The record is a 106-nucleotide RNA sequence from Asticcacaulis excentricus, which matches "SAM riboswitch aptamer (S box leader)" in Rfam.
Lineage of the source: Bacteria > Pseudomonadati > Caulobacteraceae > Asticcacaulis > Asticcacaulis excentricus.
The base pairs follow the family's consensus structure, which is taken from published work.
RNA sequence: AACUCAUCGAGACCAGCCGAGGGACAGGCCCGACGACGCUGGGGCAACCACCGAAACUUCGGAAUGGUGCCAACUCCUGCGGAAGUGCGCUUCCGACAGAUGAGAG
Numbered sequence: 001a002a003c004u005c006a007u008c009g010a011g012a013c014c015a016g017c018c019g020a021g022g023g024a025c026a027g028g029c030c031c032g033a034c035g036a037c038g039c040u041g042g043g044g045c046a047a048c049c050a051c052c053g054a055a056a057c058u059u060c061g062g063a064a065u066g067g068u069g070c071c072a073a074c075u076c077c078u079g080c081g082g083a084a085g086u087g088c089g090c091u092u093c094c095g096a097c098a099g100a101u102g103a104g105a106g
Stems, first nucleotide, its partner, number of pairs: 003104006013042005021031003025079004043071004048067002051062003075098001080095006